[Rfam]
RNA sequence: UUUCCCUUCCCUCCAAAUCCCUCAAUCCAAACACACUCUUAGAGUGUGUUUGGAUUGAGGGAUUUGGGGGGAAGGGAAG
Numbered sequence: 001u002u003u004c005c006c007u008u009c010c011c012u013c014c015a016a017a018u019c020c021c022u023c024a025a026u027c028c029a030a031a032c033a034c035a036c037u038c039u040u041a042g043a044g045u046g047u048g049u050u051u052g053g054a055u056u057g058a059g060g061g062a063u064u065u066g067g068g069g070g071g072a073a074g075g076g077a078a079g
Stems, first nucleotide, its partner, number of pairs: 001079012014066002017063002021059013035045003
RNA: MIR815 microRNA precursor family
Organism: Tripterygium wilfordii